A member of the RNA family "sraA" from Candidatus Fukatsuia symbiotica, 96 nucleotides long. A reference for the family is Hershberg et al. (2003), "A survey of small RNA-encoding genes in Escherichia coli", Nucleic Acids Res. The family's RNA type in Rfam is small RNA. The family's consensus secondary structure was predicted with RNAalifold.
[Rfam]
RNA sequence: AGAUUUCUGAGUAUAUUGGGACGAAAACAUGAGAUUCAACAAUAACGACGUGAGGAAAAAGAAACGGAGGAUGAGAUCCCCCGUUUUACAUUAACU
Numbered sequence: 001a002g003a004u005u006u007c008u009g010a011g012u013a014u015a016u017u018g019g020g021a022c023g024a025a026a027a028c029a030u031g032a033g034a035u036u037c038a039a040c041a042a043u044a045a046c047g048a049c050g051u052g053a054g055g056a057a058a059a060a061g062a063a064a065c066g067g068a069g070g071a072u073g074a075g076a077u078c079c080c081c082c083g084u085u086u087u088a089c090a091u092u093a094a095c096u
Base pairs, nucleotide, nucleotide: 008038010036011035012034016032017031018030020028062086063085064084065083066082067081069079070078071077072076